[Rfam]
RNA sequence: CCUGAAACUAGAGUCACAUCUUGACAGCUAUUGUCCUUGUGUGCUAGAGUUCUCGGAGAGGACUUACUGGUCUGAUUCACUAAUGAGGGCAGCAAGUGCUCCCGGUAGUGCCCAGAUCACAAACAUAG
Numbered sequence: 001c002c003u004g005a006a007a008c009u010a011g012a013g014u015c016a017c018a019u020c021u022u023g024a025c026a027g028c029u030a031u032u033g034u035c036c037u038u039g040u041g042u043g044c045u046a047g048a049g050u051u052c053u054c055g056g057a058g059a060g061g062a063c064u065u066a067c068u069g070g071u072c073u074g075a076u077u078c079a080c081u082a083a084u085g086a087g088g089g090c091a092g093c094a095a096g097u098g099c100u101c102c103c104g105g106u107a108g109u110g111c112c113c114a115g116a117u118c119a120c121a122a123a124c125a126u127a128g
Stems, first nucleotide, its partner, number of pairs: 002056004007050003012045002015043005023035004068119006074112001078110005085103001087101004
Small nucleolar RNA SNORA3/SNORA45 family: a 128-nucleotide RNA sequence from Pipistrellus kuhlii. Rfam's curators write: The members of this family belong to the H/ACA class of snoRNAs which are thought to guide the sites of modification of uridines to pseudouridines. This family includes mouse snoMBI-28 and human homologues ACA3 (SNORA3) and ACA3-2 (SNORA45). Both ACA3 and ACA3-2 share the same host gene. MBI-28, ACA3 and ACA3-2 are all predicted to guide the pseudouridylation of residues in 28S rRNA. The family is grouped with related families in Rfam's "SNORA3 clan". Lineage of the source: Eukaryota > Opisthokonta > Metazoa > Craniata > Pipistrellus. On this family, see Gu et al., Nucleic Acids Res 2005: "A novel experimental approach for systematic identification of box H/ACA snoRNAs from eukaryotes". The base pairs follow the family's consensus structure, which was predicted with RNAalifold. It scores 87 bits against the family's covariance model. Rfam 15.1 lists 2,080 matches to the family in 639 species.